Annotation:
A member of the RNA family "Eukaryotic large subunit ribosomal RNA" from Brettanomyces bruxellensis, 414 nucleotides of a longer RNA.
RNA sequence: GAGGAGUCAUCUCGAUAGUAAUUGAACUUAGUACGAGAGGAACCGUUCAUUCAGAUCAUUGGUAAUUGCGGCUGCCUGAGCGGGCACUACCGCGAAGCUAUCAUCUGUUGGAUUAUGGCUGAACGCCUCUAAGUCAGAAUCCAUGCUAGACAGGGGAUGAUUAAUUUUAGUGCCUUGCUGUUACUAGAAGGAUACGAAUAAGGCGGUACAUUAGUGCCGUCGCUGAGACCAUAUCAGGCGGGCGAUGGGAUACCAGGCGGAAAGGCCGGGUGUUCUUGUCUGCGGAUAGCAAUGUCAAGAGUGGCAAGGAGAGAUCCUUUGCAGACGACUUAAAUGUACAACGGGGUAUUGUAAGCAGUAGAGUAGCCCUGUUGUUACGAUCUGCUGAGAUUAAGCCUCAGUUGUCGGAUUUGC
Dot-bracket structure: .....((((((((..((((.(.(((((.................))))).)(((((...(((....(((((.(((((....)))))...)))))...)))..))))).(((....(((((...........)))))....))).)))).....))))))))............(((((((((.....................................................................................................................)))))))))...(((((.(..(.......)..).....(((((.(((.((.....((((.(..(((((......)))))..)))))....))....)))..)))))..)))))..